[Rfam]
RNA sequence: AGACACCCUUAUGGGGCAUGACUUGCUUCAGAGGGGCUUUGGCACUCACUUUGUCUGCCCCAUGAAUGUGUCUCU
Numbered sequence: 001a002g003a004c005a006c007c008c009u010u011a012u013g014g015g016g017c018a019u020g021a022c023u024u025g026c027u028u029c030a031g032a033g034g035g036g037c038u039u040u041g042g043c044a045c046u047c048a049c050u051u052u053g054u055c056u057g058c059c060c061c062a063u064g065a066a067u068g069u070g071u072c073u074c075u
Stems, first nucleotide, its partner, number of pairs: 001073006009065003013061006020055003030050002033047003036043002
This 75-nucleotide RNA from Pipistrellus kuhlii belongs to the Rfam family "mir-9229 microRNA precursor family". Gene Ontology terms of the family: miRNA-mediated post-transcriptional gene silencing and RISC complex. The family's consensus secondary structure was predicted with RNAalifold.